[Rfam]
Nucleotides: 097
Base pairs, nucleotide, nucleotide: 006021007020009017010016034063035062036061037060038059045056046055047054048053
Number, partner (000 for none) and nucleotide at each position: 001000c002000g003000c004000c005000u006021g007020g008000a009017u010016g011000a012000u013000g014000a015000a016010c017009a018000a019000a020007c021006c022000u023000a024000c025000c026000a027000a028000a029000g030000c031000a032000u033000a034063g035062u036061u037060c038059a039000c040000c041000u042000g043000a044000a045056g046055a047054u048053c049000u050000u051000c052000g053048g054047a055046u056045c057000a058000c059038u060037g061036a062035a063034c064000g065000a066000c067000a068000a069000c070000c071000u072000u073000u074000a075000u076000c077000c078000a079000u080000c081000u082000u083000u084000c085000u086000u087000u088000u089000u090000a091000u092000c093000u094000g095000a096000c097000u
A member of the RNA family "A. fumigatus snoRNA Afu_263" from Penicillium argentinense, 97 nucleotides long. The pairing is the family consensus, mapped onto this sequence. Its Rfam clan is "SNORD77 clan". Rfam links the family to the GO terms nucleolus and RNA processing.